[Rfam]
RNA: tpke11
RNA sequence: UGCAGGGUAAUUAAUCGGCACGGGCGUAGGAGUAUUCUCCACGCCCGUGCUCGCAUGUUAAGGGGCUUAAAAAAACC
Dot-bracket structure: ..(.(.........).)(((((((((..((.......))..)))))))))...........................